Rfam assigns this 113-nucleotide sequence from Catellicoccus marimammalium to the family "Streptococcus sRNA 10". Taxonomically the source falls in Catellicoccus marimammalium (Bacteria, Bacillati, Bacillota, Bacilli). Pairs were carried over by alignment from the consensus structure, which was predicted with RNAfold. It scores 62 bits against the family's covariance model.
RNA sequence: UUCAAGGGAGUAACUGGCAGAUAAUCUGCGAUAGUAUCACCAACCGAAAUUUUAUUUCUGGUACUAUCUUAAUUAGUGAGACUUGGAUGACGAGGUCAUUCAGGUCUCUUUUU
Numbered sequence: 001u002u003c004a005a006g007g008g009a010g011u012a013a014c015u016g017g018c019a020g021a022u023a024a025u026c027u028g029c030g031a032u033a034g035u036a037u038c039a040c041c042a043a044c045c046g047a048a049a050u051u052u053u054a055u056u057u058c059u060g061g062u063a064c065u066a067u068c069u070u071a072a073u074u075a076g077u078g079a080g081a082c083u084u085g086g087a088u089g090a091c092g093a094g095g096u097c098a099u100u101c102a103g104g105u106c107u108c109u110u111u112u113u
Stems, first nucleotide, its partner, number of pairs: 007027002011023002014020001030068010042057002046053002078108012

The literature on the family includes a 2013 paper in PLoS One by Tesorero et al., "Novel regulatory small RNAs in Streptococcus pyogenes". Rfam classes the family as a small RNA.